[Rfam]
RNA sequence: GAUGGAUUCAAACCAAUUCAUUAACAAUUUUUUUUGUUUGAUGGAUGGAUUGGGUGGAUUUUGUA
Numbered sequence: 001g002a003u004g005g006a007u008u009c010a011a012a013c014c015a016a017u018u019c020a021u022u023a024a025c026a027a028u029u030u031u032u033u034u035u036g037u038u039u040g041a042u043g044g045a046u047g048g049a050u051u052g053g054g055u056g057g058a059u060u061u062u063g064u065a
Base pairs, nucleotide, nucleotide: 004061005060006059007058008057011055013053014052015051016050017049018048019047020046021045022044025040026039027038029036
RNA: MIR5291 microRNA precursor family
Organism: Medicago truncatula